Source information:
A member of the RNA family "Bacterial RNase P class A" from Osedax symbiont Rs1, 364 nucleotides long. Taxonomically the source falls in Oceanospirillaceae (Bacteria, Pseudomonadota, Gammaproteobacteria, Oceanospirillales). The match comes from Rfam's covariance-model search (331 bits).
RNA sequence: CGAGUUCGCCGGACAGUCGCGCUUGUGUUUACACAAGGGAGGAAAGUCCGGGCUCCAUAGGGCAGGGUGCCAGAUAACGUCUGGGCGGCGUGAGCCGACGGCAAGUGCAACAGAGAGAAGACCGCCUAAGCAUCUAAACUUUCGGGGAUGGAUGCCGGUAAGGGUGAAAGGGUGCGGUAAGAGCGCACCGCACACAUGGCAACAUGUUGUGGCAAGGUAAACCCCACUCGGAGCAAGAUCAAAUAGGGUUCCAUGUGCCGCGGCCCGCGGUGGAACCGGGUAGAUCGCUUGAGGUAUAUGGCGACAUAUUAUCCAGAUGAAUGACUGUCUACGACAGAACCCGGCUUACAGGCGGACUCACUCA
Numbered sequence: 001c002g003a004g005u006u007c008g009c010c011g012g013a014c015a016g017u018c019g020c021g022c023u024u025g026u027g028u029u030u031a032c033a034c035a036a037g038g039g040a041g042g043a044a045a046g047u048c049c050g051g052g053c054u055c056c057a058u059a060g061g062g063c064a065g066g067g068u069g070c071c072a073g074a075u076a077a078c079g080u081c082u083g084g085g086c087g088g089c090g091u092g093a094g095c096c097g098a099c100g101g102c103a104a105g106u107g108c109a110a111c112a113g114a115g116a117g118a119a120g121a122c123c124g125c126c127u128a129a130g131c132a133u134c135u136a137a138a139c140u141u142u143c144g145g146g147g148a149u150g151g152a153u154g155c156c157g158g159u160a161a162g163g164g165u166g167a168a169a170g171g172g173u174g175c176g177g178u179a180a181g182a183g184c185g186c187a188c189c190g191c192a193c194a195c196a197u198g199g200c201a202a203c204a205u206g207u208u209g210u211g212g213c214a215a216g217g218u219a220a221a222c223c224c225c226a227c228u229c230g231g232a233g234c235a236a237g238a239u240c241a242a243a244u245a246g247g248g249u250u251c252c253a254u255g256u257g258c259c260g261c262g263g264c265c266c267g268c269g270g271u272g273g274a275a276c277c278g279g280g281u282a283g284a285u286c287g288c289u290u291g292a293g294g295u296a297u298a299u300g301g302c303g304a305c306a307u308a309u310u311a312u313c314c315a316g317a318u319g320a321a322u323g324a325c326u327g328u329c330u331a332c333g334a335c336a337g338a339a340c341c342c343g344g345c346u347u348a349c350a351g352g353c354g355g356a357c358u359c360a361c362u363c364a
Stems, first nucleotide, its partner, number of pairs: 002359009011349001012329007020039001022037006044347003048344005053233004060266004065229005070084005085099001086097004100224002105222002107218002122163002124159003130155007171189006190213001191211003194207005237286004247277006257271005293312001296309005